RNA sequence: GAACAUCAUUAAGAACUACAUUGAGUAGUGGCAACCUGCCAAAACAGGCGAAGGUGCUUUAACAAUGAGCCUUAACAAAGGAAAAAUAUGUGUGUAA
Numbered sequence: 001g002a003a004c005a006u007c008a009u010u011a012a013g014a015a016c017u018a019c020a021u022u023g024a025g026u027a028g029u030g031g032c033a034a035c036c037u038g039c040c041a042a043a044a045c046a047g048g049c050g051a052a053g054g055u056g057c058u059u060u061a062a063c064a065a066u067g068a069g070c071c072u073u074a075a076c077a078a079a080g081g082a083a084a085a086a087u088a089u090g091u092g093u094g095u096a097a
Stems, first nucleotide, its partner, number of pairs: 006068005015029005030058003035054003038049003042093001044091003070081004
Dot-bracket structure: .....(((((....(((((.....)))))(((..((((((.[.[[[)))..))).))).....))))).((((....)))).......]]].]....
RNA: SAM-I/IV (S-adenosyl methionine) riboswitch aptamer
Organism: Flavobacteriaceae bacterium